Shown here is a 95-nucleotide RNA sequence, a member of the family "PhotoRC-II RNA".
RNA sequence: AUCCGUUGGACCACACCCCAAACCGAGACCUAUAGGGUGUCUAAAUCACGUCUCUCAUACCUCCAGCUGAGGGUGCUGGAGGAAUAGUAAAACCA
Number, nucleotide and partner (000 for none) at each position: 001a000002u000003c000004c000005g000006u000007u000008g000009g000010a000011c000012c000013a000014c039015a038016c037017c036018c035019c000020a000021a000022a000023c000024c000025g054026a053027g052028a051029c050030c000031u000032a000033u000034a000035g018036g017037g016038u015039g014040u000041c000042u000043a000044a000045a000046u000047c000048a000049c000050g029051u028052c027053u026054c025055u000056c000057a000058u000059a000060c000061c081062u080063c079064c078065a077066g076067c075068u000069g000070a000071g000072g000073g000074u000075g067076c066077u065078g064079g063080a062081g061082g000083a000084a000085u000086a000087g000088u000089a000090a000091a000092a000093c000094c000095a000
It is annotated as a cis-regulatory element.